A member of the RNA family "Eukaryotic large subunit ribosomal RNA" from Guillardia theta, 110 nucleotides of a longer RNA. The base pairs follow the family's consensus structure, which is taken from published work. Taxonomically the source falls in Guillardia (Eukaryota, Cryptophyceae, Pyrenomonadales, Geminigeraceae). Rfam 15.1 lists 107,465 matches to the family in 2,616 species. Its Rfam clan is "LSU clan".
RNA sequence: AGAUCCCUUGUAGACGACUUGGGAGCGGGGACAGGUAUUGUAAGGAGUAGAGUAGCCUGGUUUUUUUUGCUACGAUCUCUUGAGAUUUAGCCUGAGCCACCCAGAUCUGU
Numbered sequence: 001a002g003a004u005c006c007c008u009u010g011u012a013g014a015c016g017a018c019u020u021g022g023g024a025g026c027g028g029g030g031a032c033a034g035g036u037a038u039u040g041u042a043a044g045g046a047g048u049a050g051a052g053u054a055g056c057c058u059g060g061u062u063u064u065u066u067u068u069g070c071u072a073c074g075a076u077c078u079c080u081u082g083a084g085a086u087u088u089a090g091c092c093u094g095a096g097c098c099a100c101c102c103a104g105a106u107c108u109g110u
Base pairs, nucleotide, nucleotide: 001108002107003106004105005104006022007021010018027100029098030097033093034092035091037086038085044080045079046078047077049076052073053072054071055070056069